Rfam assigns this 74-nucleotide RNA sequence from gamma proteobacterium HTCC5015 to the family "tRNA". Its family is annotated with triplet codon-amino acid adaptor activity in the Gene Ontology. Pairs were carried over by alignment from the consensus structure, which is taken from published work.

[Rfam]
RNA sequence: CGGAGUAUAGCUCAGCUUGGUAGAGCACCGUCAUGGGGUGGCGGGGGUCGUAGGUUCGAAUCCUACUACUCCGA
Numbered sequence: 001c002g003g004a005g006u007a008u009a010g011c012u013c014a015g016c017u018u019g020g021u022a023g024a025g026c027a028c029c030g031u032c033a034u035g036g037g038g039u040g041g042c043g044g045g046g047g048u049c050g051u052a053g054g055u056u057c058g059a060a061u062c063c064u065a066c067u068a069c070u071c072c073g074a
Stems, first nucleotide, its partner, number of pairs: 001073007010026004028044005050066005
Dot-bracket structure: (((((((..((((.........)))).(((((.......))))).....(((((.......)))))))))))).

Source information:
The match comes from Rfam's covariance-model search (60 bits).